[Rfam]
RNA sequence: ACGGCCUGCUCGUGAUCGUCUUCUCACCCUUCACGCGGCAGGCGACCGGAGAGGCCCCGUGCGCUCGCAUCGCACGGGGCCUCUCC
Numbered sequence: 001a002c003g004g005c006c007u008g009c010u011c012g013u014g015a016u017c018g019u020c021u022u023c024u025c026a027c028c029c030u031u032c033a034c035g036c037g038g039c040a041g042g043c044g045a046c047c048g049g050a051g052a053g054g055c056c057c058c059g060u061g062c063g064c065u066c067g068c069a070u071c072g073c074a075c076g077g078g079g080c081c082u083c084u085c086c
Stems, first nucleotide, its partner, number of pairs: 002044002005042006012034004018028001048086016

Shown here is an 86-nucleotide RNA from Streptomyces morookaense, a member of the family "sodF sRNA". Gene Ontology terms of the family: regulation of mRNA stability, mRNA binding and negative regulation of translation. Rfam classes the family as a small RNA. The match comes from Rfam's covariance-model search (66 bits). Pairs were carried over by alignment from the consensus structure.